[Rfam]
RNA sequence: GAACCGGGUAACCCGGUUCCGGGUACCCGGUUCCGGGUACCCGGUUCCGGGUACCCG
Numbered sequence: 001g002a003a004c005c006g007g008g009u010a011a012c013c014c015g016g017u018u019c020c021g022g023g024u025a026c027c028c029g030g031u032u033c034c035g036g037g038u039a040c041c042c043g044g045u046u047c048c049g050g051g052u053a054c055c056c057g
Base pairs, nucleotide, nucleotide: 005029006028007027008026009025010024013022014021015020034057035056036055037054038053039052040051041050042049043048

About this RNA: A member of the RNA family "Pseudomonas sRNA P36" from Brassicogethes aeneus, 57 nucleotides long. Lineage of the source: Eukaryota > Opisthokonta > Mandibulata > Pancrustacea > Brassicogethes. The family has 2 seed sequences and 53 matches in Rfam 15.1. The family's RNA type in Rfam is small RNA.